The record is a 77-nucleotide RNA sequence from Phytophthora boehmeriae, which matches "Mitochondrion-encoded tmRNA" in Rfam. It scores 97 bits against the family's covariance model. The family's RNA type in Rfam is non-coding RNA gene. The pairing is the family consensus, mapped onto this sequence. Rfam links the family to the GO term RNA catabolic process. The organism belongs to Phytophthora, within Eukaryota. On this family, see Hafez et al., RNA Biol 2013: "A second eukaryotic group with mitochondrion-encoded tmRNA: in silico identification and experimental confirmation".

[Rfam]
RNA sequence: UAAAUGGACCCAAAGGCAGUAUUUGGUAUUUCCAUAUAAAUUAAAUAACAUGGGGAUAAUUAUAGAAUUGACAUUUA
Numbered sequence: 001u002a003a004a005u006g007g008a009c010c011c012a013a014a015g016g017c018a019g020u021a022u023u024u025g026g027u028a029u030u031u032c033c034a035u036a037u038a039a040a041u042u043a044a045a046u047a048a049c050a051u052g053g054g055g056a057u058a059a060u061u062a063u064a065g066a067a068u069u070g071a072c073a074u075u076u077a
Base pairs, nucleotide, nucleotide: 001077002076003075004074005073006072010026011025012024013023014022027058028057029056030055031054032053033052